[Rfam]
RNA sequence: AUCACCUGAAGAUCUUGUUAAAAUGUAGGUUCUGAUUUGGUAGAUUUUGGGGCCUGGGAUUCUGCAUUUCUAACAAGUUCCCAGGAGCUGCUGA
Numbered sequence: 001a002u003c004a005c006c007u008g009a010a011g012a013u014c015u016u017g018u019u020a021a022a023a024u025g026u027a028g029g030u031u032c033u034g035a036u037u038u039g040g041u042a043g044a045u046u047u048u049g050g051g052g053c054c055u056g057g058g059a060u061u062c063u064g065c066a067u068u069u070c071u072a073a074c075a076a077g078u079u080c081c082c083a084g085g086a087g088c089u090g091c092u093g094a
Base pairs, nucleotide, nucleotide: 003087005085011079014077015076016075017074018073019072020071021069022068023067025065026064027063028062029061031059032058033057
The family of this 94-nucleotide sequence from Loxodonta africana is "mir-544 microRNA precursor family". The source organism's lineage runs through Eukaryota, Bilateria, Chordata, Tetrapoda and Loxodonta. A reference for the family is Chiang et al. (2010), "Mammalian microRNAs: experimental evaluation of novel and previously annotated genes", Genes Dev.